[Rfam]
Shown here is a 78-nucleotide RNA from Corchorus olitorius, a member of the family "Small nucleolar RNA SNORD18". The literature on the family includes a 2001 paper in EMBO J by Giorgi et al., "Release of U18 snoRNA from its host intron requires interaction of Nop1p with the Rnt1p endonuclease". A search with the family's covariance model found it, with a score of 45 bits.

RNA sequence: GAGAUAUGAUGAGGUUUUAUUUGGUCCGUGUUUCUGAUUUAACCGUGACCGACAAUUUCUUUACCAAACUCUGAUCUC
Numbered sequence: 001g002a003g004a005u006a007u008g009a010u011g012a013g014g015u016u017u018u019a020u021u022u023g024g025u026c027c028g029u030g031u032u033u034c035u036g037a038u039u040u041a042a043c044c045g046u047g048a049c050c051g052a053c054a055a056u057u058u059c060u061u062u063a064c065c066a067a068a069c070u071c072u073g074a075u076c077u078c
Stems, first nucleotide, its partner, number of pairs: 001078004